[Rfam]
RNA: mir-981 microRNA precursor family
RNA sequence: CCACAUUGAGCUCGGGUUUCGUCAGCAGCGGGCUGUGAUGACUAAAAAACAAGUUCGUUGUCGACGAAACCUGCAUACUGUGUGG
Numbered sequence: 001c002c003a004c005a006u007u008g009a010g011c012u013c014g015g016g017u018u019u020c021g022u023c024a025g026c027a028g029c030g031g032g033c034u035g036u037g038a039u040g041a042c043u044a045a046a047a048a049a050c051a052a053g054u055u056c057g058u059u060g061u062c063g064a065c066g067a068a069a070c071c072u073g074c075a076u077a078c079u080g081u082g083u084g085g
Base pairs, nucleotide, nucleotide: 001085002084003083004082005081006080013073014072015071016070017069018068019067020066021065030056031055032054033053034052